[Rfam]
RNA: Small Cajal body specific RNA 3
RNA sequence: UGUGGAAGCUGACUGACUUGUGUGCAGGUGAAGUGUCUGCCCACGCCAUCAGGCUUCCUAUAGUAAUGUACUGGAGAUCUCUGCCUGGUUUUGUGCAGCCCCCGGAGCCGGAUCGUUCCCCUCCAUACAAU
Numbered sequence: 001u002g003u004g005g006a007a008g009c010u011g012a013c014u015g016a017c018u019u020g021u022g023u024g025c026a027g028g029u030g031a032a033g034u035g036u037c038u039g040c041c042c043a044c045g046c047c048a049u050c051a052g053g054c055u056u057c058c059u060a061u062a063g064u065a066a067u068g069u070a071c072u073g074g075a076g077a078u079c080u081c082u083g084c085c086u087g088g089u090u091u092u093g094u095g096c097a098g099c100c101c102c103c104g105g106a107g108c109c110g111g112a113u114c115g116u117u118c119c120c121c122u123c124c125a126u127a128c129a130a131u
Stems, first nucleotide, its partner, number of pairs: 004058003009052004019045004024040002073124004081115001083113001085111001087109007